[Rfam]
RNA sequence: UGUCUCCUCCAUGUCUCCUCUGAUAUGGAUUCAGCCCGCCUUUUCAGGCGGGCUUUUUUUC
Numbered sequence: 001u002g003u004c005u006c007c008u009c010c011a012u013g014u015c016u017c018c019u020c021u022g023a024u025a026u027g028g029a030u031u032c033a034g035c036c037c038g039c040c041u042u043u044u045c046a047g048g049c050g051g052g053c054u055u056u057u058u059u060u061c
Stems, first nucleotide, its partner, number of pairs: 008029008033054008